RNA sequence: UUUGAUUAAGUGAUUAUAUAGAGUAAAAAAGCGUUAACGCGCUUUUUUAUUACCCAUCGAAACCGAUAAGCUUACUGACUAUAUAAUCUGAAAAUAGCAUUGGGAAUAGAUAGAUUUGGUGCGUCCGAGUGGACUUGAACCACCGACCCCCACCA
Number, nucleotide and partner (000 for none) at each position: 001u000002u000003u000004g000005a000006u000007u000008a000009a000010g000011u000012g000013a000014u000015u000016a000017u000018a000019u000020a000021g000022a000023g000024u049025a048026a047027a000028a000029a000030a043031g042032c041033g040034u000035u000036a000037a000038c000039g000040c033041g032042c031043u030044u000045u000046u000047u026048u025049a024050u000051u000052a000053c000054c000055c000056a000057u000058c000059g000060a000061a000062a000063c000064c000065g000066a000067u083068a082069a000070g000071c000072u000073u000074a000075c000076u000077g000078a000079c000080u000081a000082u068083a067084u000085a000086a000087u000088c000089u000090g000091a000092a000093a000094a000095u000096a000097g000098c000099a000100u000101u000102g000103g000104g000105a000106a000107u000108a000109g000110a000111u000112a000113g000114a000115u000116u000117u152118g151119g150120u000121g148122c000123g000124u000125c000126c145127g144128a000129g143130u142131g141132g140133a000134c000135u000136u000137g000138a000139a000140c132141c131142a130143c129144c127145g126146a000147c000148c121149c000150c119151c118152a117153c000154c000155a000

Annotation: The family of this 155-nucleotide RNA sequence from Arsenophonus nasoniae is "Bacterial antisense RNA HPnc0260". A search with the family's covariance model found it, with a score of 81 bits. The organism belongs to Arsenophonus, within Bacteria. The base pairs follow the family's consensus structure, which was predicted with CMfinder.